[Rfam]
RNA: CopA-like RNA
RNA sequence: AUAGCUGAAUUGUUGGCUAUACGGUUUUUAGAUGGCCCCGGUAAUCUUUCUGUACUCGCCAAAGUUAAAGAAGAUUAUCGGGGUUUUUGCUU
Numbered sequence: 001a002u003a004g005c006u007g008a009a010u011u012g013u014u015g016g017c018u019a020u021a022c023g024g025u026u027u028u029u030a031g032a033u034g035g036c037c038c039c040g041g042u043a044a045u046c047u048u049u050c051u052g053u054a055c056u057c058g059c060c061a062a063a064g065u066u067a068a069a070g071a072a073g074a075u076u077a078u079c080g081g082g083g084u085u086u087u088u089g090c091u092u
Stems, first nucleotide, its partner, number of pairs: 001020005030092001031090001034085015